The family of this 137-nucleotide RNA sequence from Enhydra lutris is "U4 spliceosomal RNA". Pairs were carried over by alignment from the consensus structure, which is taken from published work. Lineage of the source: Eukaryota > Metazoa > Deuterostomia > Chordata > Enhydra lutris.
RNA sequence: AGCUUUGCGCAGUGGCAGUAUCGUAGCCAAUGAGGUUUAUCCGAGGCGCGAUUAUUGCUAAUUAAAAUAAAAGUGUCUAGGAAAAAAUUACACCAAGGUGAUAUUUGCAUAAAGAUCUGAAGCAGGUGAAGGAAUCU
Dot-bracket structure: ...................(((((.(((.....((.....))..)))))))).........................((..(((.(.(...........).).)))...))............((((......))))